[Rfam]
RNA sequence: UUUGGGAUAUGAUGUCACCACAAUGUAAUUAUCUGAGGCAGUAGCGUUGCUGAGUAUAUUUUUUGCACGUCAGUCUGAACCCAAC
Numbered sequence: 001u002u003u004g005g006g007a008u009a010u011g012a013u014g015u016c017a018c019c020a021c022a023a024u025g026u027a028a029u030u031a032u033c034u035g036a037g038g039c040a041g042u043a044g045c046g047u048u049g050c051u052g053a054g055u056a057u058a059u060u061u062u063u064u065g066c067a068c069g070u071c072a073g074u075c076u077g078a079a080c081c082c083a084a085c
Base pairs, nucleotide, nucleotide: 002084003083004082005081006080
Shown here is an 85-nucleotide sequence from Corymbia citriodora, a member of the family "Small nucleolar RNA Z122". Taxonomically the source falls in Corymbia citriodora (Eukaryota, Viridiplantae, malvids, Myrtaceae). The match comes from Rfam's covariance-model search (52 bits). The base pairs follow the family's consensus structure, which was predicted with PFOLD.